RNA: c-di-GMP-I riboswitch aptamer
Organism: Gracilibacillus kekensis
RNA sequence: UAUAGAAAAAGGCAAACCGUUUGAAAGAACGGGACGCAAAGCCUAGGGUCUAAGGGAUCCCAAACUUCCUAUGAUCGCCUGGUUACCUGA
Numbered sequence: 001u002a003u004a005g006a007a008a009a010a011g012g013c014a015a016a017c018c019g020u021u022u023g024a025a026a027g028a029a030c031g032g033g034a035c036g037c038a039a040a041g042c043c044u045a046g047g048g049u050c051u052a053a054g055g056g057a058u059c060c061c062a063a064a065c066u067u068c069c070u071a072u073g074a075u076c077g078c079c080u081g082g083u084u085a086c087c088u089g090a
Stems, first nucleotide, its partner, number of pairs: 012037002017032006040084004045080003048075003055069003